[Rfam]
This 115-nucleotide RNA sequence from Sphingobacterium spiritivorum belongs to the Rfam family "SAM riboswitch aptamer (S box leader)". Rfam's curators write: The SAM riboswitch is found upstream of a number of genes which code for proteins involved in methionine or cysteine biosynthesis in Gram-positive bacteria. The sequence is in the family's curated seed alignment.

RNA sequence: GAUUUAUAAAGAAGUGGCGAGAGACUGGCUCAAUGACCCACUGGCAACCUUCAAAAAACGUUUGAAAAGGUGCCAAUUCCUGUCCAAAGCAAUGUUGCUUUGGAGCAUAUAAAUG
Numbered sequence: 001g002a003u004u005u006a007u008a009a010a011g012a013a014g015u016g017g018c019g020a021g022a023g024a025c026u027g028g029c030u031c032a033a034u035g036a037c038c039c040a041c042u043g044g045c046a047a048c049c050u051u052c053a054a055a056a057a058a059c060g061u062u063u064g065a066a067a068a069g070g071u072g073c074c075a076a077u078u079c080c081u082g083u084c085c086a087a088a089g090c091a092a093u094g095u096u097g098c099u100u101u102g103g104a105g106c107a108u109a110u111a112a113a114u115g
Stems, first nucleotide, its partner, number of pairs: 002114007013042005021031003025082001027080002043074004048070002050066004078107001083104008